[Rfam]
Shown here is an 80-nucleotide RNA from Hermetia illucens, a member of the family "drz-agam-1 ribozyme". The organism belongs to Hermetia, within Eukaryota. Pairs were carried over by alignment from the consensus structure, which is taken from published work.
RNA sequence: GAUCUACCAAACCCUAUCUCCACCUCCACAUGGUGGCCGCUGGAAGCUCUUUCUUAACGAAAAGCUGCAGAUGGAGAAGG
Numbered sequence: 001g002a003u004c005u006a007c008c009a010a011a012c013c014c015u016a017u018c019u020c021c022a023c024c025u026c027c028a029c030a031u032g033g034u035g036g037c038c039g040c041u042g043g044a045a046g047c048u049c050u051u052u053c054u055u056a057a058c059g060a061a062a063a064g065c066u067g068c069a070g071a072u073g074g075a076g077a078a079g080g
Stems, first nucleotide, its partner, number of pairs: 013080003017076001019074002022034003045066004050061002053059001
It scores 40 bits against the family's covariance model.